RNA sequence: ACCCGGUGCCGGGCCCCUCUGGCGAGAGUUUGACGGCGCUCUCGUGAUGUCGGUACCGCCCG
Numbered sequence: 001a002c003c004c005g006g007u008g009c010c011g012g013g014c015c016c017c018u019c020u021g022g023c024g025a026g027a028g029u030u031u032g033a034c035g036g037c038g039c040u041c042u043c044g045u046g047a048u049g050u051c052g053g054u055a056c057c058g059c060c061c062g
Base pairs, nucleotide, nucleotide: 006056007055008054009053010052011051012050022045023044024043025042026041027040028039029038

Rfam assigns this 62-nucleotide RNA sequence from Martelella mediterranea to the family "terC RNA".
The source organism's lineage runs through Bacteria, Alphaproteobacteria, Aurantimonadaceae, Martelella and Martelella mediterranea.